[Rfam]
Notes: Rfam assigns this 78-nucleotide RNA from Nyctereutes procyonoides to the family "mir-144 microRNA precursor family". NCBI's taxonomy places the organism under Eukaryota, Eumetazoa, Gnathostomata, Carnivora, Nyctereutes. Its family is annotated with RISC complex and miRNA-mediated post-transcriptional gene silencing in the Gene Ontology.
RNA sequence: GCCCUGGCUAGGAUAUCAUCAUAUACUGUAAGUUUGCGACAAGAUACUACAGUAUAGAUGAUGUACUAGUCCGGGUCC
Numbered sequence: 001g002c003c004c005u006g007g008c009u010a011g012g013a014u015a016u017c018a019u020c021a022u023a024u025a026c027u028g029u030a031a032g033u034u035u036g037c038g039a040c041a042a043g044a045u046a047c048u049a050c051a052g053u054a055u056a057g058a059u060g061a062u063g064u065a066c067u068a069g070u071c072c073g074g075g076u077c078c
Base pairs, nucleotide, nucleotide: 007070008069010067011066013064014063015062016061017060018059019058020057022056023055024054025053026052027051028050029049030048032045033044034043